[Rfam]
RNA sequence: CGCGCGGUGUACUCCCAGGCGGAAUCCGCGUCGAGGAGCGCCUGGUCGCCCAGAUAGGCCCCGUCGGCGAGCAUCCCCAGAACCGUUUCGCCGCCGUACUGCCCCGCACCGAUCUUCUCCACCCGCCCGUGCGCGAGCAGGAACACCCGGUCAUUGGCGGACCCCGCCGCCGCAAGCACCUCGCCUGCCGCGAACUCCCGCUGUGUGCAGCGCUGUGCGAGCUCGCCCAGCGCCGCCUCGUCCCCGUACUCCCGCAGCGCGGGCAGUUCGCCCAGUUCGGCGGGGAUGACCGCCACCCGGUCACCGGUCUGCACGAACGUCACGCGUCCGUCGCCCACGGAGUAGCUGAGCCGGCGGUUCACCCGGUACGUACCACCCUGCACCUGCACCCACGGCAGCAUCCGCAGCAGCCACCGCGAGGUGAUCUCCUGCAUCUGCGGCGCGGACUUGGUGGUGGUCGCCAAGUUCCGCGCCGCGGCCGUCCCAAGACUCUGCUGGGGCGGCGCCU
Numbered sequence: 001c002g003c004g005c006g007g008u009g010u011a012c013u014c015c016c017a018g019g020c021g022g023a024a025u026c027c028g029c030g031u032c033g034a035g036g037a038g039c040g041c042c043u044g045g046u047c048g049c050c051c052a053g054a055u056a057g058g059c060c061c062c063g064u065c066g067g068c069g070a071g072c073a074u075c076c077c078c079a080g081a082a083c084c085g086u087u088u089c090g091c092c093g094c095c096g097u098a099c100u101g102c103c104c105c106g107c108a109c110c111g112a113u114c115u116u117c118u119c120c121a122c123c124c125g126c127c128c129g130u131g132c133g134c135g136a137g138c139a140g141g142a143a144c145a146c147c148c149g150g151u152c153a154u155u156g157g158c159g160g161a162c163c164c165c166g167c168c169g170c171c172g173c174a175a176g177c178a179c180c181u182c183g184c185c186u187g188c189c190g191c192g193a194a195c196u197c198c199c200g201c202u203g204u205g206u207g208c209a210g211c212g213c214u215g216u217g218c219g220a221g222c223u224c225g226c227c228c229a230g231c232g233c234c235g236c237c238u239c240g241u242c243c244c245c246g247u248a249c250u251c252c253c254g255c256a257g258c259g260c261g262g263g264c265a266g267u268u269c270g271c272c273c274a275g276u277u278c279g280g281c282g283g284g285g286a287u288g289a290c291c292g293c294c295a296c297c298c299g300g301u302c303a304c305c306g307g308u309c310u311g312c313a314c315g316a317a318c319g320u321c322a323c324g325c326g327u328c329c330g331u332c333g334c335c336c337a338c339g340g341a342g343u344a345g346c347u348g349a350g351c352c353g354g355c356g357g358u359u360c361a362c363c364c365g366g367u368a369c370g371u372a373c374c375a376c377c378c379u380g381c382a383c384c385u386g387c388a389c390c391c392a393c394g395g396c397a398g399c400a401u402c403c404g405c406a407g408c409a410g411c412c413a414c415c416g417c418g419a420g421g422u423g424a425u426c427u428c429c430u431g432c433a434u435c436u437g438c439g440g441c442g443c444g445g446a447c448u449u450g451g452u453g454g455u456g457g458u459c460g461c462c463a464a465g466u467u468c469c470g471c472g473c474c475g476c477g478g479c480c481g482u483c484c485c486a487a488g489a490c491u492c493u494g495c496u497g498g499g500g501c502g503g504c505g506c507c508u
Base pairs, nucleotide, nucleotide: 006390007389008388009387010386011385016380018328019327021325025322028320029319030318031316032315038310040308041307042306045305048302050300051299055230057228058227060225063222064221065111066110067109078101079100080099082097083096085094086093120219122217127212130209131206132205133204134203135202140197143196150191156189157188158187159186160185162183166173167172232296235293240290241289242288245285249283250282252280253279254278256277257276258275259271260270261269329342331340332339353377354376356374357373361371362370391431392430394428395427397425399423400422401421403418404417405416407415437476438475439474440473442471443470444469445468446467447465448464449463450462451461452460477507478506480502481501482500484499485498487496488495

A member of the RNA family "Saccharopolyspora sRNA 350" from Streptomyces beijiangensis, 508 nucleotides long. Pairs were carried over by alignment from the consensus structure, which was predicted with RNAfold. On this family, see Liu et al., PLoS One 2013: "Prediction and characterization of small non-coding RNAs related to secondary metabolites in Saccharopolyspora erythraea". It scores 117 bits against the family's covariance model.